Rfam assigns this 103-nucleotide sequence from Saitozyma sp. JCM 24511 to the family "tRNA". Rfam links the family to the GO term triplet codon-amino acid adaptor activity. The family's consensus secondary structure is taken from published work. The organism belongs to Saitozyma, within Eukaryota.
RNA sequence: ACACUGUUGGUGUAGUGGUAACAUAGAAGCUUCCCAGACACCGUUUGGUUGCCGAUGGGCAAGUCGAUUGCUUCUGCCAAGGGUUCGAUUCCCUUACAGUGUA
Numbered sequence: 001a002c003a004c005u006g007u008u009g010g011u012g013u014a015g016u017g018g019u020a021a022c023a024u025a026g027a028a029g030c031u032u033c034c035c036a037g038a039c040a041c042c043g044u045u046u047g048g049u050u051g052c053c054g055a056u057g058g059g060c061a062a063g064u065c066g067a068u069u070g071c072u073u074c075u076g077c078c079a080a081g082g083g084u085u086c087g088a089u090u091c092c093c094u095u096a097c098a099g100u101g102u103a
Stems, first nucleotide, its partner, number of pairs: 001102007010024004026074005079095005